[Rfam]
This 72-nucleotide sequence from Nasonia vitripennis belongs to the Rfam family "HDV ribozyme from F. prausnitzii". Rfam links the family to the GO term catalytic activity. The match comes from Rfam's covariance-model search (50 bits). The literature on the family includes a 2009 paper in Science by Webb et al., "Widespread occurrence of self-cleaving ribozymes". NCBI's taxonomy places the organism under Eukaryota, Metazoa, Pterygota, Eumetabola, Nasonia.

RNA sequence: GAUUCUUUGACUCAUUCACCUCCACGCGGUAAGUGUCGGGAAACGUUGUACAUCAACGGCUAAGAAAUGAGA
Dot-bracket structure: (((.(((..........(((.......)))))).)))......(((((.....)))))..............